The family of this 102-nucleotide sequence from Propithecus coquereli is "Y RNA".
RNA sequence: GGCUGGUCCAAAUGCAGUACUGUUUACAACUAAUUAAUCACAACCAGUUACAGAUUUCUUUGUUCCUUCUCUACUCUCAUUUCUUUACUUGAGUAGCCUAAA
Numbered sequence: 001g002g003c004u005g006g007u008c009c010a011a012a013u014g015c016a017g018u019a020c021u022g023u024u025u026a027c028a029a030c031u032a033a034u035u036a037a038u039c040a041c042a043a044c045c046a047g048u049u050a051c052a053g054a055u056u057u058c059u060u061u062g063u064u065c066c067u068u069c070u071c072u073a074c075u076c077u078c079a080u081u082u083c084u085u086u087a088c089u090u091g092a093g094u095a096g097c098c099u100a101a102a
Stems, first nucleotide, its partner, number of pairs: 001098005007092002010090002014086001016081003022076001028064003032060002
About the family: Y RNAs are components of the Ro ribonucleoprotein particle (Ro RNP), in association with Ro60 and La proteins.